[Rfam]
RNA: mir-166 microRNA precursor family
Organism: Gossypium schwendimanii
RNA sequence: GUUGAGGGGAAUGCUGUCUGGUUCGAGACCAUUCGUCCCGCAGGUCUUGGAAGACUCGGUUUCGAAUGAUCUCGGACCAGGCUUCAUUCCCCCUAAC
Numbered sequence: 001g002u003u004g005a006g007g008g009g010a011a012u013g014c015u016g017u018c019u020g021g022u023u024c025g026a027g028a029c030c031a032u033u034c035g036u037c038c039c040g041c042a043g044g045u046c047u048u049g050g051a052a053g054a055c056u057c058g059g060u061u062u063c064g065a066a067u068g069a070u071c072u073c074g075g076a077c078c079a080g081g082c083u084u085c086a087u088u089c090c091c092c093c094u095a096a097c
Base pairs, nucleotide, nucleotide: 001097002096003095004094006092007091008090009089010088011087012086013085016082017081018080019079020078021077024074025073026072